[Rfam]
RNA sequence: CAUGUGAGUGAUGUAAACAUGUCCUUAGGUCGGUCUGUAUUUGGCCGUUUUGGUCAAAACGUUUGGACCGUCCAGUGUUAGGAUUCGUCAUAGUUACGCUGACACAUG
Numbered sequence: 001c002a003u004g005u006g007a008g009u010g011a012u013g014u015a016a017a018c019a020u021g022u023c024c025u026u027a028g029g030u031c032g033g034u035c036u037g038u039a040u041u042u043g044g045c046c047g048u049u050u051u052g053g054u055c056a057a058a059a060c061g062u063u064u065g066g067a068c069c070g071u072c073c074a075g076u077g078u079u080a081g082g083a084u085u086c087g088u089c090a091u092a093g094u095u096a097c098g099c100u101g102a103c104a105c106a107u108g
Stems, first nucleotide, its partner, number of pairs: 001108006
Rfam assigns this 108-nucleotide RNA sequence from Ameiurus melas to the family "Small nucleolar RNA SNORD46". It scores 58 bits against the family's covariance model. On this family, see Nicoloso et al., J Mol Biol 1996: "Intron-encoded, antisense small nucleolar RNAs: the characterization of nine novel species points to their direct role as guides for the 2'-O-ribose methylation of rRNAs". The family's RNA type in Rfam is C/D-box small nucleolar RNA. From the family's description: U40 is a C/D box small nucleolar RNA, also known as snoZ153 in plants. The human sequence has also been annotated in the sequence databases as U46. U40 is encoded in intron 2 of the ribosomal protein S8 gene in human, and is hypothesised to guide methylation of 2'-O-ribose residues on 28S ribosomal RNA. This family represents vertebrate U40. The family has 5 seed sequences and 723 matches in Rfam 15.1.